[Rfam]
Nucleotides: 114
Base pairs, nucleotide, nucleotide: 001020002019003018004017008034009033010032011031012030013029036097037096038095039094040092041091042090043089044088045087046086047085050066051065052064053063054062055061069081070080071079072078100114101113102112103111104110
Number, partner (000 for none) and nucleotide at each position: 001020a002019g003018g004017u005000c006000a007000a008034g009033u010032c011031u012030g013029c014000u015000g016000u017004a018003c019002c020001u021000c022000u023000a024000u025000c026000a027000c028000g029013g030012c031011g032010g033009g034008c035000a036097c037096u038095c039094g040092g041091u042090u043089a044088u045087g046086c047085u048000g049000u050066g051065g052064g053063c054062g055061g056000a057000a058000g059000a060000a061055c062054c063053g064052c065051c066050u067000u068000a069081g070080a071079c072078g073000u074000g075000g076000a077000u078072c079071g080070u081069c082000a083000u084000g085047g086046g087045u088044a089043u090042a091041a092040u093000g094039u095038g096037a097036g098000g099000c100114u101113g102112g103111g104110u105000u106000c107000a108000a109000u110104g111103c112102c113101c114100g